[Rfam]
RNA: t44 RNA
RNA sequence: CACCGUUUUGCUUUAAUCCACACACGUGUCGACACGGUAUCCUGGGUGCUCGAAAGAGUUGGAUAUCGGGGCGCGUGGAGGCCUAAC
Numbered sequence: 001c002a003c004c005g006u007u008u009u010g011c012u013u014u015a016a017u018c019c020a021c022a023c024a025c026g027u028g029u030c031g032a033c034a035c036g037g038u039a040u041c042c043u044g045g046g047u048g049c050u051c052g053a054a055a056g057a058g059u060u061g062g063a064u065a066u067c068g069g070g071g072c073g074c075g076u077g078g079a080g081g082c083c084u085a086a087c
Stems, first nucleotide, its partner, number of pairs: 023077008035068008048059004